[Rfam]
RNA sequence: GUCAAUUAUCUUUAGUUCCUUGCUUCCUCUGGACGACCGGGCCAAUUGUGGAAGCUGAAUAAUCCGUAAGGAGCAACCAAUG
Numbered sequence: 001g002u003c004a005a006u007u008a009u010c011u012u013u014a015g016u017u018c019c020u021u022g023c024u025u026c027c028u029c030u031g032g033a034c035g036a037c038c039g040g041g042c043c044a045a046u047u048g049u050g051g052a053a054g055c056u057g058a059a060u061a062a063u064c065c066g067u068a069a070g071g072a073g074c075a076a077c078c079a080a081u082g
Stems, first nucleotide, its partner, number of pairs: 015074007022055006030044003
Shown here is an 82-nucleotide sequence from Vibrio nereis, a member of the family "RpsF leader".
Conserved and widely distributed to many bacterial species RNA structure. It precedes operon containing rpsF, which encodes ribosomal protein S6. The motif also precedes operon containing rpsR, which encodes ribosomal protein S18. The RNA was shown to interact with S6:S18 protein dimer in vitro. It was shown that RpsF leader regulates gene expression in response to the S6:S18 complex, contributing to the regulation of ribosomal protein levels.
Gene Ontology terms of the family: negative regulation of translation and protein binding.
A search with the family's covariance model found it, with a score of 48 bits.